RNA sequence: UUUUGAUCAGCUUGAAAUUUUGCCCUUCCUUGAUUUAGAUACUGGGUGAGCAAAGUUUCAGGUGUGUCAGAGG
Numbered sequence: 001u002u003u004u005g006a007u008c009a010g011c012u013u014g015a016a017a018u019u020u021u022g023c024c025c026u027u028c029c030u031u032g033a034u035u036u037a038g039a040u041a042c043u044g045g046g047u048g049a050g051c052a053a054a055g056u057u058u059c060a061g062g063u064g065u066g067u068c069a070g071a072g073g
Base pairs, nucleotide, nucleotide: 002071003070004069005068006067007066010063011062012061013060014059015058017056018055019054020053021052023050025048028046029045030044

Overview: Shown here is a 73-nucleotide RNA from Sitophilus oryzae, a member of the family "mir-87 microRNA precursor family". A search with the family's covariance model found it, with a score of 50 bits. Rfam links the family to the GO terms RISC complex and miRNA-mediated post-transcriptional gene silencing. Taxonomically the source falls in Sitophilus (Eukaryota, Panarthropoda, Pterygota, Polyphaga).